Description
Shown here is a 124-nucleotide RNA sequence from Gordonibacter sp. 28C, a member of the family "azaaromatic riboswitch aptamer (yjdF RNA)". The source organism's lineage runs through Bacteria, Actinomycetota, Eggerthellales, Eggerthellaceae and Gordonibacter.

RNA sequence: CCCUGCGAAGAUGAAAACACGACCCCGUCGGGUAGUCGGGGUGCGGUGGAUCCGCCUGCCAACGGGCACGGCGGACGCCGUCAGUAACCUGCCUCCUUGGUUGUCCCUUCUUCGUUCGUUCACA
Numbered sequence: 001c002c003c004u005g006c007g008a009a010g011a012u013g014a015a016a017a018c019a020c021g022a023c024c025c026c027g028u029c030g031g032g033u034a035g036u037c038g039g040g041g042u043g044c045g046g047u048g049g050a051u052c053c054g055c056c057u058g059c060c061a062a063c064g065g066g067c068a069c070g071g072c073g074g075a076c077g078c079c080g081u082c083a084g085u086a087a088c089c090u091g092c093c094u095c096c097u098u099g100g101u102u103g104u105c106c107c108u109u110c111u112u113c114g115u116u117c118g119u120u121c122a123c124a
Base pairs, nucleotide, nucleotide: 005115006114007113008112009111010110011109022042023041024040025039026038027037043081044080045079046078047077048076091101092100093099